Shown here is a 103-nucleotide RNA sequence from Peptostreptococcus anaerobius, a member of the family "Glycine riboswitch aptamer". It scores 58 bits against the family's covariance model. The base pairs follow the family's consensus structure.
RNA sequence: UUGAAGGUCUUAGGAGAGAGCUAAAAAUAGCCACCGAAGGGACAAGUAUUGCGAACGUCAAGCGCAAAAUGAAAUUCUCAGGUAAAAGUAAUAAGACUGGACG
Numbered sequence: 001u002u003g004a005a006g007g008u009c010u011u012a013g014g015a016g017a018g019a020g021c022u023a024a025a026a027a028u029a030g031c032c033a034c035c036g037a038a039g040g041g042a043c044a045a046g047u048a049u050u051g052c053g054a055a056c057g058u059c060a061a062g063c064g065c066a067a068a069a070u071g072a073a074a075u076u077c078u079c080a081g082g083u084a085a086a087a088g089u090a091a092u093a094a095g096a097c098u099g100g101a102c103g
Stems, first nucleotide, its partner, number of pairs: 006098007020031004033083003036079002040077003046070002